Rfam assigns this 114-nucleotide RNA sequence from Branchiostoma floridae to the family "Potassium channel RNA editing signal". The organism belongs to Branchiostoma, within Eukaryota. By type it is a cis-regulatory element. The family's consensus secondary structure is taken from published work. A search with the family's covariance model found it, with a score of 77 bits.
RNA sequence: GUUGGAUACGGUGAUAUUGCUCCGAGGACACUCCCAGGAAAGCUCGUCGGGACACUGUGCGCUUUCGCUGGCAUGUUGGCCAUCGCCUUGCCCGUGCCGAUCAUAGUAUCAAAC
Numbered sequence: 001g002u003u004g005g006a007u008a009c010g011g012u013g014a015u016a017u018u019g020c021u022c023c024g025a026g027g028a029c030a031c032u033c034c035c036a037g038g039a040a041a042g043c044u045c046g047u048c049g050g051g052a053c054a055c056u057g058u059g060c061g062c063u064u065u066c067g068c069u070g071g072c073a074u075g076u077u078g079g080c081c082a083u084c085g086c087c088u089u090g091c092c093c094g095u096g097c098c099g100a101u102c103a104u105a106g107u108a109u110c111a112a113a114c
Base pairs, nucleotide, nucleotide: 001114002113005110007108008107009106011104013102014101015100019097020096022094037077038076040074049063050062